[Rfam]
RNA sequence: UGUCCAUGCCCUCCUUGGGCGUUUCCUCCCUAGACUUCGACCGCGCCUCGGCGCGGUCUUUUUUUGAGUCCGA
Numbered sequence: 001u002g003u004c005c006a007u008g009c010c011c012u013c014c015u016u017g018g019g020c021g022u023u024u025c026c027u028c029c030c031u032a033g034a035c036u037u038c039g040a041c042c043g044c045g046c047c048u049c050g051g052c053g054c055g056g057u058c059u060u061u062u063u064u065u066g067a068g069u070c071c072g073a
Base pairs, nucleotide, nucleotide: 008020009019010018011017039058040057041056042055043054044053045052046051
The record is a 73-nucleotide RNA sequence from Mesorhizobium sp. L-8-10, which matches "Makes More Granules Regulator RNA (mmgR)" in Rfam. Rfam links the family to the GO terms response to nitrogen compound, DNA-templated transcription, termination and protein binding. A search with the family's covariance model found it, with a score of 67 bits. By type it is a small RNA.